The family of this 67-nucleotide sequence from Triticum urartu is "Small nucleolar RNA Z105". For this family Rfam cites "The high diversity of snoRNAs in plants: identification and comparative study of 120 snoRNA genes from Oryza sativa" (Chen et al., Nucleic Acids Res, 2003).
RNA sequence: UUGGCAUGAUGAGGAUGACUAUUGGCGUCUGAUCCAUUUGAUGAUAAAAUCCUCCUACUCAUUCUGA
Numbered sequence: 001u002u003g004g005c006a007u008g009a010u011g012a013g014g015a016u017g018a019c020u021a022u023u024g025g026c027g028u029c030u031g032a033u034c035c036a037u038u039u040g041a042u043g044a045u046a047a048a049a050u051c052c053u054c055c056u057a058c059u060c061a062u063u064c065u066g067a
Stems, first nucleotide, its partner, number of pairs: 006062004026043001029040001
Rfam 15.1 lists 621 matches to the family in 204 species.